[Rfam]
RNA sequence: UUUUCUGUGUGUGGAUGGCGUUCAGCACCAAGGACAGGCUAGGUGUAUUUUUCUGUGUGUGGAUGGCGUUCAGCACCAAGGACAGGCUAGGUGUAUUU
Numbered sequence: 001u002u003u004u005c006u007g008u009g010u011g012u013g014g015a016u017g018g019c020g021u022u023c024a025g026c027a028c029c030a031a032g033g034a035c036a037g038g039c040u041a042g043g044u045g046u047a048u049u050u051u052u053c054u055g056u057g058u059g060u061g062g063a064u065g066g067c068g069u070u071c072a073g074c075a076c077c078a079a080g081g082a083c084a085g086g087c088u089a090g091g092u093g094u095a096u097u098u
Stems, first nucleotide, its partner, number of pairs: 002089001004086005016078003020074003024070003028066003032058001034056005

This 98-nucleotide sequence from Branchiostoma belcheri belongs to the Rfam family "mir-2060 microRNA precursor family". NCBI's taxonomy places the organism under Eukaryota, Eumetazoa, Deuterostomia, Amphioxiformes, Branchiostoma. Rfam 15.1 lists 3,696 matches to the family in 4 species.